RNA: drum RNA
RNA sequence: CAGCGUUGAAGCAAUUGGUGGGGUCAGCGUCCGUACAAUUGCGGAGCUUUGAACGAGGGUUUGGGACAUAUCCACAAGCUGACGUAGGAGGAAUCCGAAAGAAAAUGUCCUUUCA
Numbered sequence: 001c002a003g004c005g006u007u008g009a010a011g012c013a014a015u016u017g018g019u020g021g022g023g024u025c026a027g028c029g030u031c032c033g034u035a036c037a038a039u040u041g042c043g044g045a046g047c048u049u050u051g052a053a054c055g056a057g058g059g060u061u062u063g064g065g066a067c068a069u070a071u072c073c074a075c076a077a078g079c080u081g082a083c084g085u086a087g088g089a090g091g092a093a094u095c096c097g098a099a100a101g102a103a104a105a106u107g108u109c110c111u112u113u114c115a
Stems, first nucleotide, its partner, number of pairs: 002048003011042007018034004024082004064110003087096003